This 85-nucleotide RNA sequence from Mesobacillus subterraneus belongs to the Rfam family "pan motif".
RNA sequence: UGGGCGGUAUCGAGAGAACUGCACCUUUAGUAGGCAUAUAAAAAAAUAGUUCUGCCUGGAUCCGAAAUCGGACUGGGACGGAGGG
Numbered sequence: 001u002g003g004g005c006g007g008u009a010u011c012g013a014g015a016g017a018a019c020u021g022c023a024c025c026u027u028u029a030g031u032a033g034g035c036a037u038a039u040a041a042a043a044a045a046a047u048a049g050u051u052c053u054g055c056c057u058g059g060a061u062c063c064g065a066a067a068u069c070g071g072a073c074u075g076g077g078a079c080g081g082a083g084g085g
Base pairs, nucleotide, nucleotide: 002025003024004022005021006020007019008018010017011016052081053080054079055077056076057075058074059073061072062071063070
Description: The organism belongs to Mesobacillus, within Bacteria.